[Rfam]
RNA: Small nucleolar RNA SNORD34
Organism: Brassica rapa
RNA sequence: AAGGGCCAAUGAUGAUGCAAAUUGCAAAAUAUGCCUACAUCGUCUGAUAAUGCGAAUGAUAAUAAAAUGUAUUCUGAGGCCUUU
Numbered sequence: 001a002a003g004g005g006c007c008a009a010u011g012a013u014g015a016u017g018c019a020a021a022u023u024g025c026a027a028a029a030u031a032u033g034c035c036u037a038c039a040u041c042g043u044c045u046g047a048u049a050a051u052g053c054g055a056a057u058g059a060u061a062a063u064a065a066a067a068u069g070u071a072u073u074c075u076g077a078g079g080c081c082u083u084u
Base pairs, nucleotide, nucleotide: 001084002083004081005080006079007078